[Rfam]
RNA sequence: CCUUCGCCCUCUCGCACGACCUCCAGCCGAUCGAUCGCCUUGACACACUUCCCCGGUGUCAAGUCGAUCGAGCGGAUGGGGAUCGAGCGAGAGGGAUCCUGGAGA
Number, nucleotide and partner (000 for none) at each position: 001c000002c000003u000004u000005c000006g000007c000008c000009c000010u092011c091012u090013c089014g088015c087016a000017c000018g084019a083020c000021c081022u080023c079024c078025a077026g000027c075028c074029g073030a000031u071032c070033g069034a068035u067036c066037g065038c000039c063040u062041u061042g060043a059044c058045a057046c056047a000048c000049u000050u000051c000052c000053c000054c000055g000056g046057u045058g044059u043060c042061a041062a040063g039064u000065c037066g036067a035068u034069c033070g032071a031072g000073c029074g028075g027076a000077u025078g024079g023080g022081g021082a000083u019084c018085g000086a000087g015088c014089g013090a012091g011092a010093g000094g000095g000096a000097u000098c000099c000100u000101g000102g000103a000104g000105a000

Description
mraW RNA: a 105-nucleotide sequence from Naasia lichenicola. It scores 75 bits against the family's covariance model. Rfam classes the family as a cis-regulatory element.